A member of the RNA family "Lysine riboswitch aptamer" from Volucribacter psittacicida, 209 nucleotides long. NCBI's taxonomy places the organism under Bacteria, Pseudomonadati, Pseudomonadota, Gammaproteobacteria, Volucribacter. About the family: Riboswitches are metabolite binding domains within certain messenger RNAs that serve as precision sensors for their corresponding targets. Allosteric rearrangement of mRNA structure is mediated by ligand binding, and this results in modulation of gene expression. This family includes riboswitches that sense lysine in a number of genes involved in lysine metabolism, including lysC. The base pairs follow the family's consensus structure, which is taken from published work.

[Rfam]
RNA sequence: GGCCACAGAAGAGGUGCGUUACUCAGGUAGUUAUUUUUUUGAUUUCGGAAUCAAUAAAUUAAAUCAAGGGUUUAAUUUAACAAAAAUAAUCAGGGGAGUUUUCGCCGAGAUAAAGUUUUGUCCGAACAAACCUUUAUCGGCCUUUAGGGUUGAAUCUCUGAGGCUGUCAUUUUUACCUAAAUUGGUGCAAAUGGAGCGCUUCUACAAUG
Numbered sequence: 001g002g003c004c005a006c007a008g009a010a011g012a013g014g015u016g017c018g019u020u021a022c023u024c025a026g027g028u029a030g031u032u033a034u035u036u037u038u039u040u041g042a043u044u045u046c047g048g049a050a051u052c053a054a055u056a057a058a059u060u061a062a063a064u065c066a067a068g069g070g071u072u073u074a075a076u077u078u079a080a081c082a083a084a085a086a087u088a089a090u091c092a093g094g095g096g097a098g099u100u101u102u103c104g105c106c107g108a109g110a111u112a113a114a115g116u117u118u119u120g121u122c123c124g125a126a127c128a129a130a131c132c133u134u135u136a137u138c139g140g141c142c143u144u145u146a147g148g149g150u151u152g153a154a155u156c157u158c159u160g161a162g163g164c165u166g167u168c169a170u171u172u173u174u175a176c177c178u179a180a181a182u183u184g185g186u187g188c189a190a191a192u193g194g195a196g197c198g199c200u201u202c203u204a205c206a207a208u209g
Stems, first nucleotide, its partner, number of pairs: 007203005016105003021100001022098003030090008109138007117130004139165004144161006167194006